RNA sequence: GCUUUGCUGUGAUGAUCUGUGCAAGGACGGUAUAUGAGCGAGGUGGAUCUUGAAGGGCCAUUCCUUGCAUGAUUACAUCCAAAACUGAUAUUGUAAAUCUGAGCAAACU
Numbered sequence: 001g002c003u004u005u006g007c008u009g010u011g012a013u014g015a016u017c018u019g020u021g022c023a024a025g026g027a028c029g030g031u032a033u034a035u036g037a038g039c040g041a042g043g044u045g046g047a048u049c050u051u052g053a054a055g056g057g058c059c060a061u062u063c064c065u066u067g068c069a070u071g072a073u074u075a076c077a078u079c080c081a082a083a084a085c086u087g088a089u090a091u092u093g094u095a096a097a098u099c100u101g102a103g104c105a106a107a108c109u
Base pairs, nucleotide, nucleotide: 001109003107004106005105006104007103038068039067040066041065042064043063
The record is a 109-nucleotide RNA sequence from Sorghum bicolor, which matches "Small nucleolar RNA Z118/Z121/Z120" in Rfam. By type it is a C/D-box small nucleolar RNA. The match comes from Rfam's covariance-model search (90 bits). Pairs were carried over by alignment from the consensus structure, which was predicted with PFOLD. On this family, see Chen et al., Nucleic Acids Res 2003: "The high diversity of snoRNAs in plants: identification and comparative study of 120 snoRNA genes from Oryza sativa".